[Rfam]
RNA: ZMP/ZTP riboswitch aptamer (pfl RNA motif)
Organism: Streptomyces sparsogenes
RNA sequence: AGCGCGCGCCGUGACUGGCGAACGUGGAAGCGACCACGAGGAAGCGGCGCGCGGUGCAGUCAUCACGAGGUGCCGCCCGCCUGGGCACCCCGG
Numbered sequence: 001a002g003c004g005c006g007c008g009c010c011g012u013g014a015c016u017g018g019c020g021a022a023c024g025u026g027g028a029a030g031c032g033a034c035c036a037c038g039a040g041g042a043a044g045c046g047g048c049g050c051g052c053g054g055u056g057c058a059g060u061c062a063u064c065a066c067g068a069g070g071u072g073c074c075g076c077c078c079g080c081c082u083g084g085g086c087a088c089c090c091c092g093g
Stems, first nucleotide, its partner, number of pairs: 003053010015041002017081004024037004070088005